[Rfam]
RNA: U11 spliceosomal RNA
RNA sequence: AAAGGGGGUUGCUGUCAUGAGCAGCACACGUUGGGCAGCUUAAUUGCUCUACAUGUGGAAUUGACAUCAAGAUUUUGGGAGCAUGUGUUGGUAGAUGGGCAGCUGGUGAUGGUUGGUUCUGGCACCCAG
Numbered sequence: 001a002a003a004g005g006g007g008g009u010u011g012c013u014g015u016c017a018u019g020a021g022c023a024g025c026a027c028a029c030g031u032u033g034g035g036c037a038g039c040u041u042a043a044u045u046g047c048u049c050u051a052c053a054u055g056u057g058g059a060a061u062u063g064a065c066a067u068c069a070a071g072a073u074u075u076u077g078g079g080a081g082c083a084u085g086u087g088u089u090g091g092u093a094g095a096u097g098g099g100c101a102g103c104u105g106g107u108g109a110u111g112g113u114u115g116g117u118u119c120u121g122g123c124a125c126c127c128a129g
Base pairs, nucleotide, nucleotide: 008082009081010080012078013026014025015024027055028054030052031051033049034048035047036046037045038044056077057076058075059074060073061072062071097127098126099125102123103122104121105120106119108118109117110116